[Rfam]
The family of this 153-nucleotide RNA sequence from Youngiibacter fragilis is "glmS glucosamine-6-phosphate activated ribozyme aptamer". NCBI's taxonomy places the organism under Bacteria, Clostridia, Clostridiaceae, Youngiibacter, Youngiibacter fragilis. This entry contains a glucosamine-6-phosphate activated ribozyme that is found in the mRNA for GlmS. GlmS is an enzyme that uses fructose-6-phosphate and glutamine to generate glucosamine-6-phosphate. By type it is a riboswitch. Pairs were carried over by alignment from the consensus structure, which is taken from published work.
RNA sequence: CCAGAUGGAAUAGCGCCAGAACCGGCUGACUUAAGCCGGUUGACGAGGAUGGAGUAAUCGAAAGUUCGGCGGAUGCUCCACGGUAUGCACUACCGAAAAAGCUCCCUCAAAUACCGGAGGCGACUUCGGGGACAAAGGGGAUCAGGUGCCCAG
Numbered sequence: 001c002c003a004g005a006u007g008g009a010a011u012a013g014c015g016c017c018a019g020a021a022c023c024g025g026c027u028g029a030c031u032u033a034a035g036c037c038g039g040u041u042g043a044c045g046a047g048g049a050u051g052g053a054g055u056a057a058u059c060g061a062a063a064g065u066u067c068g069g070c071g072g073a074u075g076c077u078c079c080a081c082g083g084u085a086u087g088c089a090c091u092a093c094c095g096a097a098a099a100a101g102c103u104c105c106c107u108c109a110a111a112u113a114c115c116g117g118a119g120g121c122g123a124c125u126u127c128g129g130g131g132a133c134a135a136a137g138g139g140g141a142u143c144a145g146g147u148g149c150c151c152a153g
Base pairs, nucleotide, nucleotide: 020041021040022039023038024037025036026035027034050080051079052078053077054076058069059068060067061066081095082094083093084092085091101143103141104140105139106138114129115128116127117126118125119124